[Rfam]
RNA sequence: GAUCAGCACUGCCAGGGCAUUGUUGGAUGCGUCGGAACUCCUGACAGAAUAGCUUGCGAAGGUUUAUUCCCUUUCC
Number, nucleotide and partner (000 for none) at each position: 001g000002a000003u000004c000005a000006g000007c000008a000009c000010u046011g045012c000013c043014a042015g041016g040017g030018c029019a028020u027021u026022g000023u000024u000025g000026g021027a020028u019029g018030c017031g000032u000033c000034g000035g000036a000037a000038c000039u000040c016041c015042u014043g013044a000045c011046a010047g000048a000049a000050u000051a000052g000053c000054u000055u000056g000057c000058g000059a000060a000061g000062g000063u000064u000065u000066a000067u000068u000069c000070c000071c000072u000073u000074u000075c000076c000

This 76-nucleotide RNA sequence belongs to the Rfam family "HTH-XRE RNA". The family's consensus secondary structure is taken from published work. Rfam classes the family as a cis-regulatory element.